[Rfam]
RNA sequence: UGGACGGCAUCCUGUAUGGAGCUGUACCUGAUGUUAUACUGUGACAUUUUCACAAUUGCCUGUACAAAGCCAAAAUACAGGUGUCUGCCUUGAUCCAAUGUAUAAAACAGGACUGGGACAGAGGG
Number, nucleotide and partner (000 for none) at each position: 001u000002g028003g027004a025005c024006g023007g022008c021009a000010u020011c019012c000013u000014g000015u000016a000017u000018g000019g011020a010021g008022c007023u006024g005025u004026a000027c003028c002029u000030g000031a000032u000033g000034u000035u000036a000037u000038a000039c000040u000041g000042u000043g000044a000045c000046a000047u000048u000049u000050u000051c000052a000053c000054a000055a000056u000057u000058g000059c000060c000061u000062g000063u000064a000065c000066a000067a000068a000069g000070c000071c000072a000073a000074a000075a000076u000077a000078c000079a000080g000081g000082u000083g000084u000085c121086u120087g119088c117089c116090u115091u000092g113093a000094u112095c111096c110097a000098a000099u000100g000101u000102a000103u000104a000105a000106a000107a000108c000109a000110g096111g095112a094113c092114u000115g090116g089117g088118a000119c087120a086121g085122a000123g000124g000125g000
Shown here is a 125-nucleotide sequence from Scopulibacillus darangshiensis, a member of the family "pan motif". The organism belongs to Scopulibacillus, within Bacteria. By type it is a cis-regulatory element. Pairs were carried over by alignment from the consensus structure, which is taken from published work.